[Rfam]
RNA sequence: ACAGACCUUCAGGGCAGGGUGAAAUUCCCGACCGGCGGUGAUGAACUAUUCUUGCGUGUGCAAGGUGUUCUUAGUCCGUGACCCGGGUGGAUUCGUCCACACGGUGGAUCUGGUGCAACUCCAGAGCCGACAGUAUAGUCUGGAUGGGAGAAGGGGCGU
Dot-bracket structure: .....(((((......(((.......))).[[((((((...................................[[))))...((..................))....(((((.......)))))]])).(((....]]))).......))))).....

Record summary:
The family of this 159-nucleotide RNA sequence from Paenibacillus sp. KS1 is "FMN riboswitch aptamer (RFN element)". NCBI's taxonomy places the organism under Bacteria, Bacillati, Bacillota, Paenibacillaceae, Paenibacillus. The family's consensus secondary structure is taken from published work.